Rfam assigns this 96-nucleotide RNA sequence from Sapajus apella to the family "Y RNA". NCBI's taxonomy places the organism under Eukaryota, Amniota, Cebidae, Cebinae, Sapajus. The base pairs follow the family's consensus structure, which is taken from published work. A search with the family's covariance model found it, with a score of 57 bits. The literature on the family includes a 2000 paper in Nucleic Acids Res by Teunissen et al., "Conserved features of Y RNAs: a comparison of experimentally derived secondary structures". Rfam classes the family as a non-coding RNA gene.
RNA sequence: GGCUGGUCCAAGUGCAGUGUUUACAGCUAAUGGAUCACAAGUUACAGAGUUCUUUGCCCCUUCUCCACUCCCUCUGCUUCCCUUGACCAGCCUUAA
Numbered sequence: 001g002g003c004u005g006g007u008c009c010a011a012g013u014g015c016a017g018u019g020u021u022u023a024c025a026g027c028u029a030a031u032g033g034a035u036c037a038c039a040a041g042u043u044a045c046a047g048a049g050u051u052c053u054u055u056g057c058c059c060c061u062u063c064u065c066c067a068c069u070c071c072c073u074c075u076g077c078u079u080c081c082c083u084u085g086a087c088c089a090g091c092c093u094u095a096a
Base pairs, nucleotide, nucleotide: 001092002091003090004089005088006087007086008085010084011083014080016075017074019071026057027056029054030053